The family of this 68-nucleotide RNA from Oncorhynchus tshawytscha is "mir-24 microRNA precursor family". Its family is annotated with miRNA-mediated post-transcriptional gene silencing and RISC complex in the Gene Ontology. The family has 63 seed sequences and 1,372 matches in Rfam 15.1.
[Rfam]
RNA sequence: GUCUCCUUUACCUUCUGAACUGAUAACAGUUCUACCAAAACACUGGCUCAGUUCAGCAGGAACAUGAG
Numbered sequence: 001g002u003c004u005c006c007u008u009u010a011c012c013u014u015c016u017g018a019a020c021u022g023a024u025a026a027c028a029g030u031u032c033u034a035c036c037a038a039a040a041c042a043c044u045g046g047c048u049c050a051g052u053u054c055a056g057c058a059g060g061a062a063c064a065u066g067a068g
Base pairs, nucleotide, nucleotide: 003068004067005066009062011060012059013058015056016055017054018053019052020051021050022049023048027045028044029043030042